Rfam assigns this 75-nucleotide RNA from Firmicutes bacterium CAG:345 to the family "c-di-GMP-I riboswitch aptamer".
The literature on the family includes a 2007 paper in Nucleic Acids Res by Weinberg et al., "Identification of 22 candidate structured RNAs in bacteria using the CMfinder comparative genomics pipeline".
Lineage of the source: Bacteria > Bacillati > Bacillota.
Rfam links the family to the GO term cyclic-di-GMP binding.
It scores 62 bits against the family's covariance model.

RNA sequence: CAUAGAAAAAAGCAAAAUUGUUGUAAAGCAAUGACGCAAAACUAUAGGGUCCAUUUUGGACAGCCAGUUGCCAAU
Numbered sequence: 001c002a003u004a005g006a007a008a009a010a011a012g013c014a015a016a017a018u019u020g021u022u023g024u025a026a027a028g029c030a031a032u033g034a035c036g037c038a039a040a041a042c043u044a045u046a047g048g049g050u051c052c053a054u055u056u057u058g059g060a061c062a063g064c065c066a067g068u069u070g071c072c073a074a075u
Stems, first nucleotide, its partner, number of pairs: 012037002017032006040069004047065002049061005